Shown here is an 80-nucleotide RNA from Gouania willdenowi, a member of the family "mir-130 microRNA precursor family".

[Rfam]
RNA sequence: CUCUGCUCGACACUCUUUCCAUGUUGCACUACUGAGCGCCGCACCAAGCAGUGCAAUGAUGAAAGGGCAUCGAGCAGCCG
Numbered sequence: 001c002u003c004u005g006c007u008c009g010a011c012a013c014u015c016u017u018u019c020c021a022u023g024u025u026g027c028a029c030u031a032c033u034g035a036g037c038g039c040c041g042c043a044c045c046a047a048g049c050a051g052u053g054c055a056a057u058g059a060u061g062a063a064a065g066g067g068c069a070u071c072g073a074g075c076a077g078c079c080g
Base pairs, nucleotide, nucleotide: 001080005075006074007073008072009071010070013067014066015065016064017063018062019061022058023057024056025055026054027053028052029051030050

The organism belongs to Gouania, within Eukaryota. A search with the family's covariance model found it, with a score of 52 bits. The literature on the family includes a 2003 paper in Dev Cell by Houbaviy et al., "Embryonic stem cell-specific MicroRNAs". Pairs were carried over by alignment from the consensus structure, which was predicted with PFOLD. Rfam 15.1 lists 2,580 matches to the family in 658 species.